A member of the RNA family "mraW RNA" from Propionibacterium cyclohexanicum, 112 nucleotides long. Rfam 15.1 lists 851 matches to the family in 821 species. It is annotated as a cis-regulatory element. Lineage of the source: Bacteria > Bacillati > Actinomycetota > Propionibacteriaceae > Propionibacterium.

RNA sequence: CGCUGACUGCGGCAUGCGGCUUCAGCCCGGGCCUGGCCCCCUGGUGCACCUUCCCCGGCACCAGGUGACCUGACAGGUCCGGGUUGGAACCGGAUGCCGCAGUGCCGGGUCG
Numbered sequence: 001c002g003c004u005g006a007c008u009g010c011g012g013c014a015u016g017c018g019g020c021u022u023c024a025g026c027c028c029g030g031g032c033c034u035g036g037c038c039c040c041c042u043g044g045u046g047c048a049c050c051u052u053c054c055c056c057g058g059c060a061c062c063a064g065g066u067g068a069c070c071u072g073a074c075a076g077g078u079c080c081g082g083g084u085u086g087g088a089a090c091c092g093g094a095u096g097c098c099g100c101a102g103u104g105c106c107g108g109g110u111c112g
Stems, first nucleotide, its partner, number of pairs: 009100007018091002021088014035070002038067001040065008
A search with the family's covariance model found it, with a score of 68 bits.